[Rfam]
The family of this 100-nucleotide RNA from Frieseomelitta varia is "mir-928 microRNA precursor family". Rfam links the family to the GO terms RISC complex and miRNA-mediated post-transcriptional gene silencing. The source organism's lineage runs through Eukaryota, Opisthokonta, Ecdysozoa, Aculeata and Frieseomelitta.
RNA sequence: GUCCAGUAUUCUUGGCUGUGGAAGUUGGCGAACGUCACCCAGUCACCGUACAGCUAUCUGUGGACCAAUACCAGCACCGCGCCGGAACUGGUCGCUGGAC
Numbered sequence: 001g002u003c004c005a006g007u008a009u010u011c012u013u014g015g016c017u018g019u020g021g022a023a024g025u026u027g028g029c030g031a032a033c034g035u036c037a038c039c040c041a042g043u044c045a046c047c048g049u050a051c052a053g054c055u056a057u058c059u060g061u062g063g064a065c066c067a068a069u070a071c072c073a074g075c076a077c078c079g080c081g082c083c084g085g086a087a088c089u090g091g092u093c094g095c096u097g098g099a100c
Base pairs, nucleotide, nucleotide: 001100002099003098004097006095007094009087010086011085014083015082016081018080019079020078021077024075025074026073027072028071034065035064038062040060041059042058
Dot-bracket structure: ((((.((.(((..(((.((((..(((((.....((..(.(((...............))).).)).....))))).))))))).)))......)).))))